[Rfam]
RNA sequence: GGCAGAGGGAAGGUCAUUGGUCGGGCCACGAGCUGAGUGCCUUGUGUCACUCUACCCCAUGUGGCCUGGGGAGGUGUGAGACUAGAGCCAAAAGUGGCCCUAACAGAGGCCACCUCCAAGAGUUUCCAGGAGGUGGGUUUUCAGAGAAGGCGGCUCUCUGCUCCUAAGGGCAGACUGGGUAGGAGACUCAGUGGGCCCCAGCCCUUAAGGAUGGGCCUGGCAGAUGCCUCCUUAGCCUGACCUUGAACGGACUCACACAGCCAGUGAAGAGAGUUCAAUGGCUGCGGUGAGGUACCCUGCCCCUCCCGGGAAGGUGGGGGGGUGGUGCUCAGAACCCAAUUCAGACCACUCUCUACUACC
Numbered sequence: 001g002g003c004a005g006a007g008g009g010a011a012g013g014u015c016a017u018u019g020g021u022c023g024g025g026c027c028a029c030g031a032g033c034u035g036a037g038u039g040c041c042u043u044g045u046g047u048c049a050c051u052c053u054a055c056c057c058c059a060u061g062u063g064g065c066c067u068g069g070g071g072a073g074g075u076g077u078g079a080g081a082c083u084a085g086a087g088c089c090a091a092a093a094g095u096g097g098c099c100c101u102a103a104c105a106g107a108g109g110c111c112a113c114c115u116c117c118a119a120g121a122g123u124u125u126c127c128a129g130g131a132g133g134u135g136g137g138u139u140u141u142c143a144g145a146g147a148a149g150g151c152g153g154c155u156c157u158c159u160g161c162u163c164c165u166a167a168g169g170g171c172a173g174a175c176u177g178g179g180u181a182g183g184a185g186a187c188u189c190a191g192u193g194g195g196c197c198c199c200a201g202c203c204c205u206u207a208a209g210g211a212u213g214g215g216c217c218u219g220g221c222a223g224a225u226g227c228c229u230c231c232u233u234a235g236c237c238u239g240a241c242c243u244u245g246a247a248c249g250g251a252c253u254c255a256c257a258c259a260g261c262c263a264g265u266g267a268a269g270a271g272a273g274u275u276c277a278a279u280g281g282c283u284g285c286g287g288u289g290a291g292g293u294a295c296c297c298u299g300c301c302c303c304u305c306c307c308g309g310g311a312a313g314g315u316g317g318g319g320g321g322g323u324g325g326u327g328c329u330c331a332g333a334a335c336c337c338a339a340u341u342c343a344g345a346c347c348a349c350u351c352u353c354u355a356c357u358a359c360c
Stems, first nucleotide, its partner, number of pairs: 001360002004357001008354003015284002018281001021069005035052005040046001077343004087261002096111004100106001114132004133256007153241001155239001288331004
RNA: Nuclear RNase P